Shown here is a 77-nucleotide RNA from Parafrankia soli, a member of the family "SAH (S-adenosyl-L-homocysteine) riboswitch aptamer". Rfam 15.1 lists 1,354 matches to the family in 1,132 species. Lineage of the source: Bacteria > Actinomycetes > Frankiales > Frankiaceae > Parafrankia. The literature on the family includes a 2008 paper in Mol Cell by Wang et al., "Riboswitches that sense S-adenosylhomocysteine and activate genes involved in coenzyme recycling". The family's consensus secondary structure is taken from published work.
RNA sequence: CCGGUCGAGGGGCGCUGCAACGGACCGAGGUCCGCCACGCUCGAUCGGAACCUCAUCCGCAAGGGCGCCUCCCACAA
Numbered sequence: 001c002c003g004g005u006c007g008a009g010g011g012g013c014g015c016u017g018c019a020a021c022g023g024a025c026c027g028a029g030g031u032c033c034g035c036c037a038c039g040c041u042c043g044a045u046c047g048g049a050a051c052c053u054c055a056u057c058c059g060c061a062a063g064g065g066c067g068c069c070u071c072c073c074a075c076a077a
Stems, first nucleotide, its partner, number of pairs: 002047007021034005